Shown here is a 132-nucleotide RNA sequence from Cricetulus griseus, a member of the family "Small nucleolar RNA SNORA68". The family's consensus secondary structure was predicted with PFOLD. NCBI's taxonomy places the organism under Eukaryota, Dipnotetrapodomorpha, Mammalia, Cricetidae, Cricetulus. The match comes from Rfam's covariance-model search (110 bits).
[Rfam]
RNA sequence: CCUGCACCCAACCCAAGAACUUCCGCUGUCUGUAGCGGCUGUUUAAACAGUGGUGCACACAGCAAAAGGGGCUUUGUCGCCUUUAGGGGGCUGUGUGGUGCCCCCCAGAGUGAAUCAGAAGGUUCUACAGUC
Numbered sequence: 001c002c003u004g005c006a007c008c009c010a011a012c013c014c015a016a017g018a019a020c021u022u023c024c025g026c027u028g029u030c031u032g033u034a035g036c037g038g039c040u041g042u043u044u045a046a047a048c049a050g051u052g053g054u055g056c057a058c059a060c061a062g063c064a065a066a067a068g069g070g071g072c073u074u075u076g077u078c079g080c081c082u083u084u085a086g087g088g089g090g091c092u093g094u095g096u097g098g099u100g101c102c103c104c105c106c107a108g109a110g111u112g113a114a115u116c117a118g119a120a121g122g123u124u125c126u127a128c129a130g131u132c
Stems, first nucleotide, its partner, number of pairs: 003057006018043003023038005069125007081110004086105006
Rfam classes the family as an H/ACA-box small nucleolar RNA.